[Rfam]
RNA sequence: UGACUCAUGAUGAGCUAUGUUGUCUGAAGUGAAUGACGUGAAGGUCACCCGAAUACUCUGAAGUCC
Numbered sequence: 001u002g003a004c005u006c007a008u009g010a011u012g013a014g015c016u017a018u019g020u021u022g023u024c025u026g027a028a029g030u031g032a033a034u035g036a037c038g039u040g041a042a043g044g045u046c047a048c049c050c051g052a053a054u055a056c057u058c059u060g061a062a063g064u065c066c
Stems, first nucleotide, its partner, number of pairs: 002065004012058003020052002025047003
This 66-nucleotide RNA from Myotis myotis belongs to the Rfam family "Small Nucleolar RNA SNORD64". For this family Rfam cites "Identification of brain-specific and imprinted small nucleolar RNA genes exhibiting an unusual genomic organization" (Cavaille et al., Proc Natl Acad Sci U S A, 2000). It is annotated as a C/D-box small nucleolar RNA. Clan: SNORD74 clan. The source organism's lineage runs through Eukaryota, Euteleostomi, Chiroptera, Yangochiroptera and Myotis.